[Rfam]
RNA: S10-Clostridia ribosomal protein leader
Nucleotides: 080
Stems, first nucleotide, its partner, number of pairs: 014050003018047004025041005059079004066074001068072001
Number, partner (000 for none) and nucleotide at each position: 001000u002000g003000a004000u005000a006000g007000c008000u009000g010000u011000g012000a013000a014050g015049c016048g017000u018047g019046a020045g021044g022000u023000u024000g025041c026040u027039g028038c029037g030000a031000u032000a033000c034000a035000a036000u037029c038028g039027c040026a041025g042000g043000u044021u045020u046019u047018c048016c049015g050014u051000g052000g053000a054000g055000c056000g057000a058000a059079u060078g061077u062076c063000a064000a065000a066074u067000a068072a069000u070000u071000c072068u073000g074066g075000c076062g077061a078060c079059a080000a